This 105-nucleotide sequence belongs to the Rfam family "cow-rumen-2 RNA". Rfam classes the family as a small RNA. The sequence is in the family's curated seed alignment. Pairs were carried over by alignment from the consensus structure, which is taken from published work.
[Rfam]
RNA sequence: AUCGUAGUUAAAUCUAGCAAGUUUAACACAUAGCCGCCUUGGUUGAAUAAGAUGUAGCUGGAGUACAGGAAGACCGACCCAUAAGCUUAUUCGUAAAUCCCACAG
Numbered sequence: 001a002u003c004g005u006a007g008u009u010a011a012a013u014c015u016a017g018c019a020a021g022u023u024u025a026a027c028a029c030a031u032a033g034c035c036g037c038c039u040u041g042g043u044u045g046a047a048u049a050a051g052a053u054g055u056a057g058c059u060g061g062a063g064u065a066c067a068g069g070a071a072g073a074c075c076g077a078c079c080c081a082u083a084a085g086c087u088u089a090u091u092c093g094u095a096a097a098u099c100c101c102a103c104a105g
Base pairs, nucleotide, nucleotide: 002077007027008026009025010024011023012022013021040102041100042099043097044096045092046091047090048089049088050087051086059081060080061079064076068075069074